[Rfam]
RNA sequence: GAAGUGGGCCAGGCGACCGCGGGACGCGUCAGCGUCAUGAGGAAAGUCCGGGCUCCACAGGGCAGGAAGCUGGCUAACGGCCAGGCGGGGUGACCCGACGGAAAGCGCCGCAGAAAAGAAGACUCCCGCUGUCCUUUCGAGGAUGAGAGAAAAGCUGAAACGGUGGUGUAAGAGACCACCAGCGCCCAGGCGACUGGACGGCUUGGCAAGCCCCUUCCGGAGCAAACGCAAAUAGGAGCGCCAUGGUGUGGCCCGCACCGCGCUCGGGUUGCGCGCUGGAGGGCGUCGGCGACGACGUCAGCAGAUAAAUGGCCGCCCACGACAGAACCCGGCUUAUCGGCCCACUUCGCGA
Numbered sequence: 001g002a003a004g005u006g007g008g009c010c011a012g013g014c015g016a017c018c019g020c021g022g023g024a025c026g027c028g029u030c031a032g033c034g035u036c037a038u039g040a041g042g043a044a045a046g047u048c049c050g051g052g053c054u055c056c057a058c059a060g061g062g063c064a065g066g067a068a069g070c071u072g073g074c075u076a077a078c079g080g081c082c083a084g085g086c087g088g089g090g091u092g093a094c095c096c097g098a099c100g101g102a103a104a105g106c107g108c109c110g111c112a113g114a115a116a117a118g119a120a121g122a123c124u125c126c127c128g129c130u131g132u133c134c135u136u137u138c139g140a141g142g143a144u145g146a147g148a149g150a151a152a153a154g155c156u157g158a159a160a161c162g163g164u165g166g167u168g169u170a171a172g173a174g175a176c177c178a179c180c181a182g183c184g185c186c187c188a189g190g191c192g193a194c195u196g197g198a199c200g201g202c203u204u205g206g207c208a209a210g211c212c213c214c215u216u217c218c219g220g221a222g223c224a225a226a227c228g229c230a231a232a233u234a235g236g237a238g239c240g241c242c243a244u245g246g247u248g249u250g251g252c253c254c255g256c257a258c259c260g261c262g263c264u265c266g267g268g269u270u271g272c273g274c275g276c277u278g279g280a281g282g283g284c285g286u287c288g289g290c291g292a293c294g295a296c297g298u299c300a301g302c303a304g305a306u307a308a309a310u311g312g313c314c315g316c317c318c319a320c321g322a323c324a325g326a327a328c329c330c331g332g333c334u335u336a337u338c339g340g341c342c343c344a345c346u347u348c349g350c351g352a
Stems, first nucleotide, its partner, number of pairs: 001348010011337001012317004017312002020039002023036005044335003048332005053222004060254004065218005070084005085099001086097004100213002105211002107207003123154002126149001130145006162180006182202001183200002186197004227273003236265006245259005282299007

Shown here is a 352-nucleotide RNA from Olsenella sp. HMSC062G07, a member of the family "Bacterial RNase P class A".